[Rfam]
RNA: Small Cajal body specific RNA 23
Organism: Urocolius indicus
RNA sequence: GUGCUCACAAGAACACCUAUCCUGUCAUGUGGCUGUGAUGGGUUCUGGCAAAACGUGAGCUAGAGCACCAGUAUUGCAUUGGGAGUGUCACAUUCCAGGCCAUAUGAGACACUACGGUUUUCAAUACAACA
Numbered sequence: 001g002u003g004c005u006c007a008c009a010a011g012a013a014c015a016c017c018u019a020u021c022c023u024g025u026c027a028u029g030u031g032g033c034u035g036u037g038a039u040g041g042g043u044u045c046u047g048g049c050a051a052a053a054c055g056u057g058a059g060c061u062a063g064a065g066c067a068c069c070a071g072u073a074u075u076g077c078a079u080u081g082g083g084a085g086u087g088u089c090a091c092a093u094u095c096c097a098g099g100c101c102a103u104a105u106g107a108g109a110c111a112c113u114a115c116g117g118u119u120u121u122c123a124a125u126a127c128a129a130c131a
Stems, first nucleotide, its partner, number of pairs: 003060006012044003017040001019039003025032002071127001073125004079117003084113006091106001092103002